[Rfam]
RNA sequence: UGACGGGACCCCGCACAAGCGGUGGAUCAUGUUGUUUAAUUCGAAGAUACACGAAAAACCUUACCAGGUCUUGACAUACUCUGCAAUGGCUUAGAAAUAAGUUCGGAGGUUAACAGAUGUACAGGUGGUGCACGGUUGUCGUCAGCUCGUGUCGUGAGAUGUUGGGUUAAGUCCCGCAACGAGCGCAACCCUUAUUGCUAGUUACCAUCAUUAAGUUGGGGACUCUAGCGAGACUGCCAGUGAUAAAUUGGAGGAAGGUGGGGAUGACGUCAAAUCAUCAUGCCCCUUAUGACCUGGGCUACAAACGUGAUACAAUGGCUGAUACAAAGAGAAGCGAUGGGGUGACCCGGAGCGAAUCUCAUAAAGGCAGUCUCAGUUCGGAUUGAAGUCUGCAACUCGACUUCAUGAAGUUGGAAUCGCUAGUAAUCGCGAAUCAGCAUGUCGCGGUGAAUACGUUCUCGGGGUUUGUACACACCGCCCGUCAAACCACGAAAGUGAGCAAUACCCAAAGCCGGUGGCCUAACCCGUAAGGGAGGGAGCCGUCUAAGGUAGGGUUCAUGAUUGGGGUUAAGUCGUAACAAGG
Numbered sequence: 001u002g003a004c005g006g007g008a009c010c011c012c013g014c015a016c017a018a019g020c021g022g023u024g025g026a027u028c029a030u031g032u033u034g035u036u037u038a039a040u041u042c043g044a045a046g047a048u049a050c051a052c053g054a055a056a057a058a059c060c061u062u063a064c065c066a067g068g069u070c071u072u073g074a075c076a077u078a079c080u081c082u083g084c085a086a087u088g089g090c091u092u093a094g095a096a097a098u099a100a101g102u103u104c105g106g107a108g109g110u111u112a113a114c115a116g117a118u119g120u121a122c123a124g125g126u127g128g129u130g131c132a133c134g135g136u137u138g139u140c141g142u143c144a145g146c147u148c149g150u151g152u153c154g155u156g157a158g159a160u161g162u163u164g165g166g167u168u169a170a171g172u173c174c175c176g177c178a179a180c181g182a183g184c185g186c187a188a189c190c191c192u193u194a195u196u197g198c199u200a201g202u203u204a205c206c207a208u209c210a211u212u213a214a215g216u217u218g219g220g221g222a223c224u225c226u227a228g229c230g231a232g233a234c235u236g237c238c239a240g241u242g243a244u245a246a247a248u249u250g251g252a253g254g255a256a257g258g259u260g261g262g263g264a265u266g267a268c269g270u271c272a273a274a275u276c277a278u279c280a281u282g283c284c285c286c287u288u289a290u291g292a293c294c295u296g297g298g299c300u301a302c303a304a305a306c307g308u309g310a311u312a313c314a315a316u317g318g319c320u321g322a323u324a325c326a327a328a329g330a331g332a333a334g335c336g337a338u339g340g341g342g343u344g345a346c347c348c349g350g351a352g353c354g355a356a357u358c359u360c361a362u363a364a365a366g367g368c369a370g371u372c373u374c375a376g377u378u379c380g381g382a383u384u385g386a387a388g389u390c391u392g393c394a395a396c397u398c399g400a401c402u403u404c405a406u407g408a409a410g411u412u413g414g415a416a417u418c419g420c421u422a423g424u425a426a427u428c429g430c431g432a433a434u435c436a437g438c439a440u441g442u443c444g445c446g447g448u449g450a451a452u453a454c455g456u457u458c459u460c461g462g463g464g465u466u467u468g469u470a471c472a473c474a475c476c477g478c479c480c481g482u483c484a485a486a487c488c489a490c491g492a493a494a495g496u497g498a499g500c501a502a503u504a505c506c507c508a509a510a511g512c513c514g515g516u517g518g519c520c521u522a523a524c525c526c527g528u529a530a531g532g533g534a535g536g537g538a539g540c541c542g543u544c545u546a547a548g549g550u551a552g553g554g555u556u557c558a559u560g561a562u563u564g565g566g567g568u569u570a571a572g573u574c575g576u577a578a579c580a581a582g583g
Base pairs, nucleotide, nucleotide: 001472002471003469004468005467007466008465009464010463011462012461013460015456016455019420020419021418022417023416024313026311027310028309029308030307031306032305033304034302035301040055041054042053043052064297065296066295067294068293069292070291077121078120080117081116082115083114088103089102090101091100092099093098124286125285127284128283129282130281134279135275136274137273138271140269141268145184146183147182148181149180150179151160152159153158163176164175165174166173190263191262192261193260195231196230197229198228199227200226201225205220206219209218210217234254235253237251238250239249240248241247317372318371319370320369321368323366329360330359331358334353335352339348340347341346379410384405385404386403387402388401389400390399426448427447428446429445430444431443432442475582477579480575481574485569486568487567488566490564491563492562495559496558497557498556499555500554503551504550505549506548511544513542514541515540516539519537520536521535524533525532
RNA: Bacterial small subunit ribosomal RNA, nucleotides 884 to 1466